[Rfam]
RNA sequence: GAACGUGCUCCGGGGUCGGUGAGAAUCCGAACCGGCGGUGACAGUCCGCGAACCGCCGUCAUGAUGACGGCGGCCGAUCCGGUGGGAUUCCGGGACCGACGGUGAUGCAGGCGCAGCCUGCGAGUCCGGAUGAGAGGCAGCACGUGA
Numbered sequence: 001g002a003a004c005g006u007g008c009u010c011c012g013g014g015g016u017c018g019g020u021g022a023g024a025a026u027c028c029g030a031a032c033c034g035g036c037g038g039u040g041a042c043a044g045u046c047c048g049c050g051a052a053c054c055g056c057c058g059u060c061a062u063g064a065u066g067a068c069g070g071c072g073g074c075c076g077a078u079c080c081g082g083u084g085g086g087a088u089u090c091c092g093g094g095a096c097c098g099a100c101g102g103u104g105a106u107g108c109a110g111g112c113g114c115a116g117c118c119u120g121c122g123a124g125u126c127c128g129g130a131u132g133a134g135a136g137g138c139a140g141c142a143c144g145u146g147a
Stems, first nucleotide, its partner, number of pairs: 003145007010136001017029003033098002035049004044096002053073002078094005100128003